[Rfam]
RNA sequence: AUUUUUUAUUAUUUAUCUAUGAUAAAUAAAAAAAUAUAGGGAAAACGCGUCUAUGGGGAUAAACUGUCAAACUCCGGGGAACUCCUAAAGAUUAAGGUACCAAGCCAUAGUUGAAAAACUAUGGGUGGCUGAAGUAAUUACUCAGAGAUGGUAACAACCCUUAAUAUACGUGAAAACAAAAUGGACAAUCGCGGAUCUAAAUCAGUAAUAUGAAAUAUUAUUGCUGUAAAAGAGCAAUGAGUAGACGGCAGUUGAUUUAUUAAGUCAUCUCUAAUAAAUUUAAGGUGUAUUCUACAGGGUUCCGAAAGGAAUAG
Numbered sequence: 001a002u003u004u005u006u007u008a009u010u011a012u013u014u015a016u017c018u019a020u021g022a023u024a025a026a027u028a029a030a031a032a033a034a035u036a037u038a039g040g041g042a043a044a045a046c047g048c049g050u051c052u053a054u055g056g057g058g059a060u061a062a063a064c065u066g067u068c069a070a071a072c073u074c075c076g077g078g079g080a081a082c083u084c085c086u087a088a089a090g091a092u093u094a095a096g097g098u099a100c101c102a103a104g105c106c107a108u109a110g111u112u113g114a115a116a117a118a119c120u121a122u123g124g125g126u127g128g129c130u131g132a133a134g135u136a137a138u139u140a141c142u143c144a145g146a147g148a149u150g151g152u153a154a155c156a157a158c159c160c161u162u163a164a165u166a167u168a169c170g171u172g173a174a175a176a177c178a179a180a181a182u183g184g185a186c187a188a189u190c191g192c193g194g195a196u197c198u199a200a201a202u203c204a205g206u207a208a209u210a211u212g213a214a215a216u217a218u219u220a221u222u223g224c225u226g227u228a229a230a231a232g233a234g235c236a237a238u239g240a241g242u243a244g245a246c247g248g249c250a251g252u253u254g255a256u257u258u259a260u261u262a263a264g265u266c267a268u269c270u271c272u273a274a275u276a277a278a279u280u281u282a283a284g285g286u287g288u289a290u291u292c293u294a295c296a297g298g299g300u301u302c303c304g305a306a307a308g309g310a311a312u313a314g
Stems, first nucleotide, its partner, number of pairs: 001023003005019001008016002062253005068247001073195004077190002083185003196233002203226002208221003237293001239292005255279008299312005
Shown here is a 314-nucleotide RNA sequence from Pedobacter sp., a member of the family "Group I catalytic intron". Taxonomically the source falls in Pedobacter (Bacteria, Pseudomonadati, Bacteroidota, Sphingobacteriales).